[Rfam]
RNA sequence: AAAAAGGGUGCUUGCUUUAUGGCAUACAGGGUCUUUAGCCCUGUAGAGUAUGGCUAUCAAGACAUACUCAGCACAUAAUUUUUGGACUGAGAGGCAGUUAGGUGUCCAAGAACCCUGGCGCUUCU
Numbered sequence: 001a002a003a004a005a006g007g008g009u010g011c012u013u014g015c016u017u018u019a020u021g022g023c024a025u026a027c028a029g030g031g032u033c034u035u036u037a038g039c040c041c042u043g044u045a046g047a048g049u050a051u052g053g054c055u056a057u058c059a060a061g062a063c064a065u066a067c068u069c070a071g072c073a074c075a076u077a078a079u080u081u082u083u084g085g086a087c088u089g090a091g092a093g094g095c096a097g098u099u100a101g102g103u104g105u106c107c108a109a110g111a112a113c114c115c116u117g118g119c120g121c122u123u124c125u
Base pairs, nucleotide, nucleotide: 008074009073010072011071012070013024014023015022016021025045026044027043028042029041030040031039032038046069047068048067049066050065051064052063092123093122094121095120097119098118099117100116101115104113105112106110
Description:
Shown here is a 125-nucleotide RNA from Bemisia tabaci, a member of the family "U11 spliceosomal RNA". The match comes from Rfam's covariance-model search (88 bits). Its Rfam clan is "U1 clan". The family's RNA type in Rfam is spliceosomal small nuclear RNA. Lineage of the source: Eukaryota > Metazoa > Eumetazoa > Hemiptera > Bemisia. The base pairs follow the family's consensus structure, which is taken from published work. A reference for the family is Montzka and Steitz (1988), "Additional low-abundance human small nuclear ribonucleoproteins: U11, U12, etc", Proc Natl Acad Sci U S A.